The family of this 174-nucleotide sequence from Bacillus benzoevorans is "glmS glucosamine-6-phosphate activated ribozyme aptamer". Taxonomically the source falls in Bacillus (Bacteria, Bacillati, Bacillota, Bacillaceae). On this family, see Winkler et al., Nature 2004: "Control of gene expression by a natural metabolite-responsive ribozyme".

Nucleotides: 174
Stems, first nucleotide, its partner, number of pairs: 020054008029046001063095005072084004096115006120164007133150007
Number, partner (000 for none) and nucleotide at each position: 001000g002000c003000a004000u005000u006000u007000u008000u009000u010000a011000a012000a013000g014000c015000g016000c017000c018000u019000g020054a021053a022052c023051u024050a025049a026048u027047c028000c029046c030000u031000c032000g033000a034000a035000c036000g037000a038000g039000c040000a041000g042000c043000a044000c045000c046029g047027g048026a049025u050024u051023a052022g053021u054020u055000g056000a057000c058000g059000a060000g061000g062000a063095g064094g065093a066092g067091g068000u069000u070000u071000a072084u073083c074082g075081a076000a077000g078000u079000u080000a081075u082074c083073g084072g085000c086000g087000g088000a089000u090000a091067c092066c093065u094064c095063c096115c097114g098113g099112u100111u101110g102000u103000a104000c105000c106000g107000g108000c109000a110101c111100a112099a113098u114097c115096g116000a117000c118000a119000g120164u121163u122162c123161u124160u125159c126158u127000u128000u129000a130000a131000a132000u133150c134149a135148u136147u137146a138145a139144g140000g141000c142000a143000a144139c145138u146137u147136a148135a149134u150133g151000g152000a153000c154000a155000a156000a157000g158126g159125g160124a161123a162122g163121a164120g165000a166000u167000u168000g169000c170000u171000g172000g173000u174000g